Shown here is a 78-nucleotide RNA sequence from Protea cynaroides, a member of the family "Small nucleolar RNA R21".
The organism belongs to Protea, within Eukaryota.
For this family Rfam cites "Identification of 66 box C/D snoRNAs in Arabidopsis thaliana: extensive gene duplications generated multiple isoforms predicting new ribosomal RNA 2'-O-methylation sites" (Barneche et al., J Mol Biol, 2001).
Pairs were carried over by alignment from the consensus structure, which was predicted with PFOLD.
RNA sequence: CAUCCCUAUGAAGAUCACCAAAUGUAAUAAAAGUAGUGGGCUGAUCACUAUGAUGAGUGUUUGUGAUUCUGAGGGAUA
Dot-bracket structure: .(((((..................................................................))))).
Numbered sequence: 001c002a003u004c005c006c007u008a009u010g011a012a013g014a015u016c017a018c019c020a021a022a023u024g025u026a027a028u029a030a031a032a033g034u035a036g037u038g039g040g041c042u043g044a045u046c047a048c049u050a051u052g053a054u055g056a057g058u059g060u061u062u063g064u065g066a067u068u069c070u071g072a073g074g075g076a077u078a
Stems, first nucleotide, its partner, number of pairs: 002077005